The record is a 133-nucleotide sequence from Corynebacterium poyangense, which matches "atpB RNA" in Rfam. Taxonomically the source falls in Corynebacterium (Bacteria, Bacillati, Mycobacteriales, Corynebacteriaceae). The base pairs follow the family's consensus structure, which is taken from published work. By type it is a cis-regulatory element.

RNA sequence: CUGCGGCUGUCCUGUUGAUGUGCGACGGAGUCCGAGGUAGCCGCAGUGUAAUGAACGAUGUCCAUCGCACCGCAUGGGGACCGGGUCUUCCUGUGCGGCCCAGAACACGGGAGAGAACGCUGAGCGUUAUAAC
Numbered sequence: 001c002u003g004c005g006g007c008u009g010u011c012c013u014g015u016u017g018a019u020g021u022g023c024g025a026c027g028g029a030g031u032c033c034g035a036g037g038u039a040g041c042c043g044c045a046g047u048g049u050a051a052u053g054a055a056c057g058a059u060g061u062c063c064a065u066c067g068c069a070c071c072g073c074a075u076g077g078g079g080a081c082c083g084g085g086u087c088u089u090c091c092u093g094u095g096c097g098g099c100c101c102a103g104a105a106c107a108c109g110g111g112a113g114a115g116a117a118c119g120c121u122g123a124g125c126g127u128u129a130u131a132a133c
Stems, first nucleotide, its partner, number of pairs: 001046011070098010